[Rfam]
RNA sequence: ACUACCCAUCCAUUCACUACGGAUCGUCCGGCACGUACCUGCCGGUGAAGGAGUUAGUA
Numbered sequence: 001a002c003u004a005c006c007c008a009u010c011c012a013u014u015c016a017c018u019a020c021g022g023a024u025c026g027u028c029c030g031g032c033a034c035g036u037a038c039c040u041g042c043c044g045g046u047g048a049a050g051g052a053g054u055u056a057g058u059a
Stems, first nucleotide, its partner, number of pairs: 010051002013049004028045006

Annotation
This 59-nucleotide RNA from Lacisediminihabitans changchengi belongs to the Rfam family "msiK RNA". Pairs were carried over by alignment from the consensus structure, which is taken from published work. The match comes from Rfam's covariance-model search (62 bits).